[Rfam]
RNA sequence: GAAUCUCUGGAAAGCUUUUAAGUAAGCACCGAAGGGGCAAUUCUAUAAAUUAUAUAAUUCAUAUAUAUAUUAUAGAAGAAACUCUCAGGUUUUAGACAGGGAAGUAUGG
Dot-bracket structure: ...((((((.....(((......))).(((((..(((...((((((((.....................))))))))....))))).)))......)))))).......
Numbered sequence: 001g002a003a004u005c006u007c008u009g010g011a012a013a014g015c016u017u018u019u020a021a022g023u024a025a026g027c028a029c030c031g032a033a034g035g036g037g038c039a040a041u042u043c044u045a046u047a048a049a050u051u052a053u054a055u056a057a058u059u060c061a062u063a064u065a066u067a068u069a070u071u072a073u074a075g076a077a078g079a080a081a082c083u084c085u086c087a088g089g090u091u092u093u094a095g096a097c098a099g100g101g102a103a104g105u106a107u108g109g
Stems, first nucleotide, its partner, number of pairs: 004102006015026003028090003031086002035084003041077008